[Rfam]
A member of the RNA family "t44 RNA" from Pseudidiomarina aestuarii, 122 nucleotides long. Rfam's curators write: This family consists of a number of bacterial RNA genes of between 135 and 170 bases in length. The t44 gene has been identified in several species of enteric bacteria but homologs have also been identified in Pseudomonas and Coxiella species. Taxonomically the source falls in Pseudidiomarina (Bacteria, Pseudomonadota, Alteromonadales, Idiomarinaceae).
RNA sequence: AUUUUGAACUUUAAAACACACACAUACAUCGACACAUGGUUCGGGGUGCUUGGUUCAGCGUUGUAGGCUUAAAAAGUCUCACGUGAAAUUGGGUCGAAGCAUGGGAUGUAUGGAGGCAUAAC
Numbered sequence: 001a002u003u004u005u006g007a008a009c010u011u012u013a014a015a016a017c018a019c020a021c022a023c024a025u026a027c028a029u030c031g032a033c034a035c036a037u038g039g040u041u042c043g044g045g046g047u048g049c050u051u052g053g054u055u056c057a058g059c060g061u062u063g064u065a066g067g068c069u070u071a072a073a074a075a076g077u078c079u080c081a082c083g084u085g086a087a088a089u090u091g092g093g094u095c096g097a098a099g100c101a102u103g104g105g106a107u108g109u110a111u112g113g114a115g116g117c118a119u120a121a122c
Stems, first nucleotide, its partner, number of pairs: 023112008035103004040098004048094008